Shown here is a 97-nucleotide RNA from Pandoraea terrae, a member of the family "Glycine riboswitch aptamer". The match comes from Rfam's covariance-model search (50 bits). Rfam links the family to the GO term glycine biosynthetic process. Lineage of the source: Bacteria > Pseudomonadati > Pseudomonadota > Burkholderiaceae > Pandoraea.
RNA sequence: CCUGCGUGGUCGGGAGAGCGCGCCGGGAAGCACAUGCCGGCGCCGCCGAAGGGGUAACACCCGUAAACUCUCAGGCAUAAAGGACCGGCCCGCCGAA
Numbered sequence: 001c002c003u004g005c006g007u008g009g010u011c012g013g014g015a016g017a018g019c020g021c022g023c024c025g026g027g028a029a030g031c032a033c034a035u036g037c038c039g040g041c042g043c044c045g046c047c048g049a050a051g052g053g054g055u056a057a058c059a060c061c062c063g064u065a066a067a068c069u070c071u072c073a074g075g076c077a078u079a080a081a082g083g084a085c086c087g088g089c090c091c092g093c094c095g096a097a
Stems, first nucleotide, its partner, number of pairs: 008090006020043007045076003048072002052070003058063001